Rfam assigns this 81-nucleotide RNA to the family "skipping-rope RNA".
By type it is a small RNA.
It is one of the family's seed sequences.
[Rfam]
RNA sequence: AGUAGUUGAGGGCAGAAAAGGUUCCUGCCGCACCUUCAAUUAGGUAUUUGAGAUGUUGGGUACACCGACCAACCGACUACU
Dot-bracket structure: ((((((((..(((((....[[[..))))).(((((......))))....)....(((((....]]]..)))))))))))))